[Rfam]
Nucleotides: 092
Stems, first nucleotide, its partner, number of pairs: 001043005010031008067091001069089001070087002073084002
Number, partner (000 for none) and nucleotide at each position: 001043g002042g003041u004040u005039c006000g007000g008000g009000a010031g011030c012029c013028a014027u015026c016025c017024g018000g019000u020000g021000g022000g023000a024017c025016g026015g027014g028013u029012g030011g031010c032000a033000c034000g035000a036000a037000u038000a039005g040004g041003a042002c043001c044000u045000u046000a047000c048000c049000c050000c051000c052000u053000g054000c055000u056000u057000c058000g059000c060000a061000u062000g063000c064000g065000g066000c067091g068000a069089g070087c071086c072000u073084c074083g075000u076000u077000c078000c079000c080000c081000a082000a083074c084073g085000u086071g087070g088000c089069c090000g091067c092000c
The family of this 92-nucleotide RNA from Pseudorhodobacter sp. is "Rhodo-rpoB RNA". A search with the family's covariance model found it, with a score of 64 bits.